[Rfam]
RNA sequence: GAGUGAUAGCCAUGGCAUGGAAGAAAGUGAGAUUUGCCUCAAUCGAUCGUGAAUCAAAACCUUUAUGAUUAUCACUGCAAGCUUUACCUUCUUCUUAGCCAUGAUUAUCACUG
Numbered sequence: 001g002a003g004u005g006a007u008a009g010c011c012a013u014g015g016c017a018u019g020g021a022a023g024a025a026a027g028u029g030a031g032a033u034u035u036g037c038c039u040c041a042a043u044c045g046a047u048c049g050u051g052a053a054u055c056a057a058a059a060c061c062u063u064u065a066u067g068a069u070u071a072u073c074a075c076u077g078c079a080a081g082c083u084u085u086a087c088c089u090u091c092u093u094c095u096u097a098g099c100c101a102u103g104a105u106u107a108u109c110a111c112u113g
Stems, first nucleotide, its partner, number of pairs: 002112006011103006019095007027087003031083001033081005045070007
The family of this 113-nucleotide sequence from Arabidopsis thaliana is "MIR5020 microRNA precursor family". Rfam links the family to the GO terms RISC complex and miRNA-mediated post-transcriptional gene silencing. The base pairs follow the family's consensus structure, which was predicted with RNAalifold.